RNA sequence: CAAGGGGCCGCCGAAAACCUUUUGAAAAGAGUAGGCA
Numbered sequence: 001c002a003a004g005g006g007g008c009c010g011c012c013g014a015a016a017a018c019c020u021u022u023u024g025a026a027a028a029g030a031g032u033a034g035g036c037a
Base pairs, nucleotide, nucleotide: 002021003020004019005018010036011035012034